RNA sequence: GGUGAUAAACGUGCGUGUAAUAACCAGACCGGACCCGGGUGCGAUUCCCGGCGGCUCCACCAAUCUCUUUUCCGCUGCGUUGGGCGGUGAGCAUGGGGCCGAUCAGGAUCGACGGAUGGGUAAAGACGUUGCUUUCACCCGCAUGGGCUCCGUUAUCAGCCCAUUGUUAAAGUUGCCAACGACAACUUUGCUGAAGAAGUGCGUCUCGCUGCGUAA
Numbered sequence: 001g002g003u004g005a006u007a008a009a010c011g012u013g014c015g016u017g018u019a020a021u022a023a024c025c026a027g028a029c030c031g032g033a034c035c036c037g038g039g040u041g042c043g044a045u046u047c048c049c050g051g052c053g054g055c056u057c058c059a060c061c062a063a064u065c066u067c068u069u070u071u072c073c074g075c076u077g078c079g080u081u082g083g084g085c086g087g088u089g090a091g092c093a094u095g096g097g098g099c100c101g102a103u104c105a106g107g108a109u110c111g112a113c114g115g116a117u118g119g120g121u122a123a124a125g126a127c128g129u130u131g132c133u134u135u136c137a138c139c140c141g142c143a144u145g146g147g148c149u150c151c152g153u154u155a156u157c158a159g160c161c162c163a164u165u166g167u168u169a170a171a172g173u174u175g176c177c178a179a180c181g182a183c184a185a186c187u188u189u190g191c192u193g194a195a196g197a198a199g200u201g202c203g204u205c206u207c208g209c210u211g212c213g214u215a216a
Stems, first nucleotide, its partner, number of pairs: 001139005013129004025118002029115003035051005052101007140152002143149001
A member of the RNA family "permuted transfer-messenger RNA" from Glycocaulis alkaliphilus, 216 nucleotides long. It is annotated as a non-coding RNA gene. It scores 128 bits against the family's covariance model.